A member of the RNA family "c-di-AMP riboswitch aptamer (ydaO/yuaA leader)" from Streptomyces sp. ADI95-17, 161 nucleotides long.
RNA sequence: UCCGGCAAUCCGACCCACUCAUGUACGGCAGGAGCGGGGAACCCAGGUAAGCCGCCGGUCCGGAAUCCGGAACGGCUCGGGGUGAAGCCGCGCACAUGCGCGGCCAGGCAUCUCCAGCCCGAACCCGACAGCUCACCUCGCAGGCGACGGAGAGGAAUCCA
Numbered sequence: 001u002c003c004g005g006c007a008a009u010c011c012g013a014c015c016c017a018c019u020c021a022u023g024u025a026c027g028g029c030a031g032g033a034g035c036g037g038g039g040a041a042c043c044c045a046g047g048u049a050a051g052c053c054g055c056c057g058g059u060c061c062g063g064a065a066u067c068c069g070g071a072a073c074g075g076c077u078c079g080g081g082g083u084g085a086a087g088c089c090g091c092g093c094a095c096a097u098g099c100g101c102g103g104c105c106a107g108g109c110a111u112c113u114c115c116a117g118c119c120c121g122a123a124c125c126c127g128a129c130a131g132c133u134c135a136c137c138u139c140g141c142a143g144g145c146g147a148c149g150g151a152g153a154g155g156a157a158u159c160c161a
Stems, first nucleotide, its partner, number of pairs: 001033003034141006044079001080126003088103004107119003
A search with the family's covariance model found it, with a score of 56 bits.